[Rfam]
RNA: speF leader
RNA sequence: UCCCGGUCUCCACAGCCGGGAAUACUGAAGAGGCACACCAUCCUUGCCUGAAGUGCGGCGGGUUCAAGCCCUCCAAACCAUGGCAGACGAAGCCGGAAUGCUCGCGUUGUCUUGCGCGGGUUUCCGAUGAAGUCGCGUCGCGAAACUGUCUCUCCCGG
Numbered sequence: 001u002c003c004c005g006g007u008c009u010c011c012a013c014a015g016c017c018g019g020g021a022a023u024a025c026u027g028a029a030g031a032g033g034c035a036c037a038c039c040a041u042c043c044u045u046g047c048c049u050g051a052a053g054u055g056c057g058g059c060g061g062g063u064u065c066a067a068g069c070c071c072u073c074c075a076a077a078c079c080a081u082g083g084c085a086g087a088c089g090a091a092g093c094c095g096g097a098a099u100g101c102u103c104g105c106g107u108u109g110u111c112u113u114g115c116g117c118g119g120g121u122u123u124c125c126g127a128u129g130a131a132g133u134c135g136c137g138u139c140g141c142g143a144a145a146c147u148g149u150c151u152c153u154c155c156c157g158g
Base pairs, nucleotide, nucleotide: 001021002020003019004018005017006016007015032048033047034046035045055138056137057136082094083093103120105118106117